[Rfam]
RNA sequence: GCCAAAUGAUGUGUUGUAUAGAUUGCAUUAGCACUUUGUGCAAAGAUGACUAUUGAUCUAUCACCCAUGACUGAUGGCU
Numbered sequence: 001g002c003c004a005a006a007u008g009a010u011g012u013g014u015u016g017u018a019u020a021g022a023u024u025g026c027a028u029u030a031g032c033a034c035u036u037u038g039u040g041c042a043a044a045g046a047u048g049a050c051u052a053u054u055g056a057u058c059u060a061u062c063a064c065c066c067a068u069g070a071c072u073g074a075u076g077g078c079u
Base pairs, nucleotide, nucleotide: 001078002077003076004075031041032040033039034038
RNA: Small nucleolar RNA SNORD83